[Rfam]
RNA sequence: CUCAUAGAAACGACCCUCAGUGUGUUUACUGAGAACGUUUCUAUGUUGGCUUUAUUAUCCUAUAAACAUGUUGCAGCCGCAUAGAAUAAAAGGGGACAUCCCUUGUUCUGUGCGGCUUUUUUGUAUU
Numbered sequence: 001c002u003c004a005u006a007g008a009a010a011c012g013a014c015c016c017u018c019a020g021u022g023u024g025u026u027u028a029c030u031g032a033g034a035a036c037g038u039u040u041c042u043a044u045g046u047u048g049g050c051u052u053u054a055u056u057a058u059c060c061u062a063u064a065a066a067c068a069u070g071u072u073g074c075a076g077c078c079g080c081a082u083a084g085a086a087u088a089a090a091a092g093g094g095g096a097c098a099u100c101c102c103u104u105g106u107u108c109u110g111u112g113c114g115g116c117u118u119u120u121u122u123g124u125a126u127u
Stems, first nucleotide, its partner, number of pairs: 003045009016033005076116014

The family of this 127-nucleotide RNA from Pisciglobus halotolerans is "trpB ncRNA motif".
trpB ncRNA motif was reported as a strong cis regulatory motif candidate, with potential to be a cis regulatory riboswitch type, it have been identified in Firmicutes and Fusobacteria. The motif have been recognised upstream of an uncharacterized ABC transporter with strong homology to amino acid transporters. It is also occasionally located upstream of trpB gene, that codes for a tryptophan synthase.
The literature on the family includes a 2024 paper in Nucleic Acids Res by Narunsky et al., "The discovery of novel noncoding RNAs in 50 bacterial genomes".
Gene Ontology term of the family: regulation of gene expression.